RNA sequence: UUUCCGUCACAACGGCUUCCUGACGUGACGGUUUUAAUCCAAUGGAGCA
Numbered sequence: 001u002u003u004c005c006g007u008c009a010c011a012a013c014g015g016c017u018u019c020c021u022g023a024c025g026u027g028a029c030g031g032u033u034u035u036a037a038u039c040c041a042a043u044g045g046a047g048c049a
Stems, first nucleotide, its partner, number of pairs: 004031007013022002015048003019045002

SAM/SAH riboswitch aptamer: a 49-nucleotide RNA sequence from Shimia sp. SK013.
Taxonomically the source falls in Shimia (Bacteria, Pseudomonadati, Pseudomonadota, Rhodobacterales).
Its family is annotated with regulation of gene expression and S-adenosylmethionine metabolic process in the Gene Ontology.
A reference for the family is Weickhmann et al. (2019), "The structure of the SAM/SAH-binding riboswitch", Nucleic Acids Res.
The base pairs follow the family's consensus structure, which is taken from published work.